[Rfam]
RNA: Bacterial small signal recognition particle RNA
RNA sequence: AAUACUUUUUGGGGCAAUAUUUUGUUUAUGAAGCGUGUCAGGACCUGACGGUAGCAGCACUAAGUAGGCAAGGUAUGUGCCCUUUUUUGAUUUUAUUU
Number, nucleotide and partner (000 for none) at each position: 001a000002a000003u000004a092005c000006u090007u089008u000009u000010u000011g083012g082013g081014g080015c077016a000017a076018u075019a074020u073021u072022u071023u000024g069025u068026u067027u066028a065029u064030g000031a000032a000033g000034c000035g060036u059037g058038u057039c000040a000041g000042g000043a052044c051045c050046u000047g000048a000049c000050g045051g044052u043053a000054g000055c000056a000057g038058c037059a036060c035061u000062a000063a000064g029065u028066a027067g026068g025069c024070a000071a022072g021073g020074u019075a018076u017077g015078u000079g000080c014081c013082c012083u011084u000085u000086u000087u000088u000089g007090a006091u000092u004093u000094u000095a000096u000097u000098u000